The record is an 85-nucleotide RNA sequence from Meiothermus sp. QL-1, which matches "Glycine riboswitch aptamer" in Rfam.
[Rfam]
Nucleotides: 085
Stems, first nucleotide, its partner, number of pairs: 005081005011076003020031004033066003036062002040060003046054002
Number, partner (000 for none) and nucleotide at each position: 001000g002000c003000g004000c005081c006080g007079c008078u009077a010000c011076c012075g013074g014000g015000a016000g017000a018000g019000a020031c021030u022029g023028g024000c025000u026000u027000g028023c029022c030021a031020g032000c033066g034065c035064c036062g037061a038000a039000g040060g041059a042058g043000c044000a045000a046054c047053c048000g049000c050000c051000c052000c053047g054046g055000a056000a057000a058042c059041u060040c061037u062036c063000a064035g065034g066033c067000a068000a069000a070000a071000g072000g073000a074013c075012c076011g077009u078008a079007g080006c081005g082000g083000c084000c085000u